[Rfam]
RNA sequence: GAGUGUUACAGCUCUUUUAGAAUUUGUCUAGAAGGCUUUCUGAUUUUUACCAGAAAGUCCCC
Numbered sequence: 001g002a003g004u005g006u007u008a009c010a011g012c013u014c015u016u017u018u019a020g021a022a023u024u025u026g027u028c029u030a031g032a033a034g035g036c037u038u039u040c041u042g043a044u045u046u047u048u049a050c051c052a053g054a055a056a057g058u059c060c061c062c
Stems, first nucleotide, its partner, number of pairs: 034059009044049001
The family of this 62-nucleotide sequence from Cebus imitator is "U7 small nuclear RNA". Pairs were carried over by alignment from the consensus structure, which was predicted with PFOLD.